[Rfam]
RNA sequence: GCCCACGUGGUGGAAUUGGUAGACACGCCAUCUUGAGGGGGUGGUGUUCGCAAGGACGUGCUGGUUCGAAUCCAGUCGUGGGCA
Numbered sequence: 001g002c003c004c005a006c007g008u009g010g011u012g013g014a015a016u017u018g019g020u021a022g023a024c025a026c027g028c029c030a031u032c033u034u035g036a037g038g039g040g041g042u043g044g045u046g047u048u049c050g051c052a053a054g055g056a057c058g059u060g061c062u063g064g065u066u067c068g069a070a071u072c073c074a075g076u077c078g079u080g081g082g083c084a
Stems, first nucleotide, its partner, number of pairs: 001083007010026003028044005060076005
This 84-nucleotide sequence from Aquimarina brevivitae belongs to the Rfam family "tRNA". The match comes from Rfam's covariance-model search (49 bits).